[Rfam]
RNA sequence: AGGAAGUUUGAGAGGUCUUGACCUUAGUACGAGAGGACCGGGUUGAACCAACCGCUGGUGUACCGGUUGUGGCGUCAGCUGCAUUGCCGGGUAGCUAUGUUGGGACGAGAUAAGCGCUGAAAGCAUCUAAGCGCGAAACUCACCUCAAGAUGAGACUUCCAUUAAGGGACGUCAGAGAUUAUGACGUUGAUAGGCUGCAGGUGUAAAGGCAGAAAUGUCAAAGCUGAGCAGUACUAAUUACCCGAAC
Numbered sequence: 001a002g003g004a005a006g007u008u009u010g011a012g013a014g015g016u017c018u019u020g021a022c023c024u025u026a027g028u029a030c031g032a033g034a035g036g037a038c039c040g041g042g043u044u045g046a047a048c049c050a051a052c053c054g055c056u057g058g059u060g061u062a063c064c065g066g067u068u069g070u071g072g073c074g075u076c077a078g079c080u081g082c083a084u085u086g087c088c089g090g091g092u093a094g095c096u097a098u099g100u101u102g103g104g105a106c107g108a109g110a111u112a113a114g115c116g117c118u119g120a121a122a123g124c125a126u127c128u129a130a131g132c133g134c135g136a137a138a139c140u141c142a143c144c145u146c147a148a149g150a151u152g153a154g155a156c157u158u159c160c161a162u163u164a165a166g167g168g169a170c171g172u173c174a175g176a177g178a179u180u181a182u183g184a185c186g187u188u189g190a191u192a193g194g195c196u197g198c199a200g201g202u203g204u205a206a207a208g209g210c211a212g213a214a215a216u217g218u219c220a221a222a223g224c225u226g227a228g229c230a231g232u233a234c235u236a237a238u239u240a241c242c243c244g245a246a247c
Base pairs, nucleotide, nucleotide: 002160003159004158005157006156007155008154009153012146013145014144015143018046019045020044021043022042023041024040048103049102050101051100052099056097057096058095063090064089065088066087067086068083069082070081071080072079073078107141108140109139114134115133116132117131118130163245166243167242168241170186171185172184173183174182191236192235193234194232195231196230197229198228200225201224204220208219209218210217211216
RNA: Bacterial large subunit ribosomal RNA, nucleotides 2630 to 2876